[Rfam]
RNA sequence: ACCGAAUUCCUGGAGAAGCAAUUCAACUCUAGGAAGAUAAAAUAAAUUAAGAUUAAGUGGUAGGAAUCAAUCCACAUAUUGCAAU
Numbered sequence: 001a002c003c004g005a006a007u008u009c010c011u012g013g014a015g016a017a018g019c020a021a022u023u024c025a026a027c028u029c030u031a032g033g034a035a036g037a038u039a040a041a042a043u044a045a046a047u048u049a050a051g052a053u054u055a056a057g058u059g060g061u062a063g064g065a066a067u068c069a070a071u072c073c074a075c076a077u078a079u080u081g082c083a084a085u
Stems, first nucleotide, its partner, number of pairs: 007035009068081004

About this RNA: The record is an 85-nucleotide RNA sequence from Dichanthelium oligosanthes, which matches "Plastid-rpl20 3UTR RNA" in Rfam. It scores 81 bits against the family's covariance model. Plastid rpl20 is a non-coding RNA (ncRNA) recognised in plastids. It was found in the three prime untranslated region (3UTR) of rpl20 gene, it presence in the 3UTR region sugest a role in transcript maduration. A reference for the family is Richter et al. (2023), "Retrograde signaling in plants: A critical review focusing on the GUN pathway and beyond", Plant Commun. The source organism's lineage runs through Eukaryota, Streptophyta, Magnoliopsida, Panicoideae and Dichanthelium. The family's consensus secondary structure was predicted with LocARNA.